Bacterial RNase P class A: a 430-nucleotide RNA sequence from Gordonia mangrovi.
RNA sequence: CGAGUCGGCCGGGCGGCCGCGGUGCGCGGAACGGCCCGCAAACGGGUACGCCGCCAUCGAGGAAAGUCCGGACUCCACAGAGCAGGGUGGUUGUCAACGGCAACCCGGGGUGACCCGCGGGACAGUGCCACAGAGAACAGACCGCCUCCGCCGGUCCUUCGGGAACGGCGGCGGUAAGGGUGAAACGGUGCGGUAAGAGCGCACCAGCGGCGCGGGUGACCGUGCCGGCUCGGUAAACCCCACCCGGAGCAAGGCCGAAGCUCGCACCGCGGGAGACCGUGUGUGCGGGUGCGCGGAUGAUCGAGGGCUGCUCGCCCGAGUCCGCGGGUGGGCCGCUCGAGGUACCCGGCGACGGUGUGCCCAGAUGGAUGGUCGCCACCCGGUCCUCGAUGACCGGGGACAGGAUCCGGCUUACACGCCGGCUCGUUCG
Numbered sequence: 001c002g003a004g005u006c007g008g009c010c011g012g013g014c015g016g017c018c019g020c021g022g023u024g025c026g027c028g029g030a031a032c033g034g035c036c037c038g039c040a041a042a043c044g045g046g047u048a049c050g051c052c053g054c055c056a057u058c059g060a061g062g063a064a065a066g067u068c069c070g071g072a073c074u075c076c077a078c079a080g081a082g083c084a085g086g087g088u089g090g091u092u093g094u095c096a097a098c099g100g101c102a103a104c105c106c107g108g109g110g111u112g113a114c115c116c117g118c119g120g121g122a123c124a125g126u127g128c129c130a131c132a133g134a135g136a137a138c139a140g141a142c143c144g145c146c147u148c149c150g151c152c153g154g155u156c157c158u159u160c161g162g163g164a165a166c167g168g169c170g171g172c173g174g175u176a177a178g179g180g181u182g183a184a185a186c187g188g189u190g191c192g193g194u195a196a197g198a199g200c201g202c203a204c205c206a207g208c209g210g211c212g213c214g215g216g217u218g219a220c221c222g223u224g225c226c227g228g229c230u231c232g233g234u235a236a237a238c239c240c241c242a243c244c245c246g247g248a249g250c251a252a253g254g255c256c257g258a259a260g261c262u263c264g265c266a267c268c269g270c271g272g273g274a275g276a277c278c279g280u281g282u283g284u285g286c287g288g289g290u291g292c293g294c295g296g297a298u299g300a301u302c303g304a305g306g307g308c309u310g311c312u313c314g315c316c317c318g319a320g321u322c323c324g325c326g327g328g329u330g331g332g333c334c335g336c337u338c339g340a341g342g343u344a345c346c347c348g349g350c351g352a353c354g355g356u357g358u359g360c361c362c363a364g365a366u367g368g369a370u371g372g373u374c375g376c377c378a379c380c381c382g383g384u385c386c387u388c389g390a391u392g393a394c395c396g397g398g399g400a401c402a403g404g405a406u407c408c409g410g411c412u413u414a415c416a417c418g419c420c421g422g423c424u425c426g427u428u429c430g
Stems, first nucleotide, its partner, number of pairs: 001426009011415001012377007020059005026054004064413003068410005073249004080313004085245005090104005105119001106117004120240002125238002127234003142179002144175003148171005187205006207229001208227008253334004293325006305317004341360001346355003
Gene Ontology terms of the family: tRNA processing, ribonuclease P activity and dimeric ribonuclease P complex. The family's RNA type in Rfam is ribozyme.